[Rfam]
RNA sequence: AGAUGAUGUGAUGAUCGAAUUGUUUCCCUAUUGGUUUGAUUGGCCACCACGAUGGCUCAAACUGUAUAAGCUCUAUCCGAUUAUCU
Numbered sequence: 001a002g003a004u005g006a007u008g009u010g011a012u013g014a015u016c017g018a019a020u021u022g023u024u025u026c027c028c029u030a031u032u033g034g035u036u037u038g039a040u041u042g043g044c045c046a047c048c049a050c051g052a053u054g055g056c057u058c059a060a061a062c063u064g065u066a067u068a069a070g071c072u073c074u075a076u077c078c079g080a081u082u083a084u085c086u
Stems, first nucleotide, its partner, number of pairs: 002085004038058001043056003
This 86-nucleotide RNA from Paspalum vaginatum belongs to the Rfam family "Small nucleolar RNA Z102/R77". The match comes from Rfam's covariance-model search (83 bits). Rfam classes the family as a C/D-box small nucleolar RNA. Its family is annotated with RNA processing and nucleolus in the Gene Ontology. Taxonomically the source falls in Paspalum (Eukaryota, Streptophyta, commelinids, Paspaleae).